[Rfam]
RNA sequence: GGUUGCAAGUUUAAGGCUACAGCAGAAGCACUCAUAGCACGGCCCUGCCAGAGUUCAACAAAUCUGUGAAUUCUGCU
Numbered sequence: 001g002g003u004u005g006c007a008a009g010u011u012u013a014a015g016g017c018u019a020c021a022g023c024a025g026a027a028g029c030a031c032u033c034a035u036a037g038c039a040c041g042g043c044c045c046u047g048c049c050a051g052a053g054u055u056c057a058a059c060a061a062a063u064c065u066g067u068g069a070a071u072u073c074u075g076c077u
Base pairs, nucleotide, nucleotide: 015044016043017042018041021077022076023075024074025073026072027071028040049066050065051064052063054061055060
This 77-nucleotide sequence from Alligator sinensis belongs to the Rfam family "Mammalian CPEB3 ribozyme".
The organism belongs to Alligator, within Eukaryota.
Gene Ontology term of the family: RNA nuclease activity.